The record is an 81-nucleotide RNA sequence from Cognatiyoonia koreensis, which matches "chrB-a RNA" in Rfam. It scores 58 bits against the family's covariance model. The family has 163 seed sequences and 347 matches in Rfam 15.1. The family's consensus secondary structure is taken from published work. Taxonomically the source falls in Cognatiyoonia (Bacteria, Pseudomonadota, Alphaproteobacteria, Rhodobacterales).
[Rfam]
RNA sequence: CGCGUGGGGCCAGCGACUGCCUCGCGAGGCCGCGGCCCAAAGCUCGCAUCCUUUCUGAGUCUUUCCAAGGAUGCCCCCAUG
Numbered sequence: 001c002g003c004g005u006g007g008g009g010c011c012a013g014c015g016a017c018u019g020c021c022u023c024g025c026g027a028g029g030c031c032g033c034g035g036c037c038c039a040a041a042g043c044u045c046g047c048a049u050c051c052u053u054u055c056u057g058a059g060u061c062u063u064u065c066c067a068a069g070g071a072u073g074c075c076c077c078c079a080u081g
Base pairs, nucleotide, nucleotide: 005024006023007022008021009020010019046074047073048072049071050070051069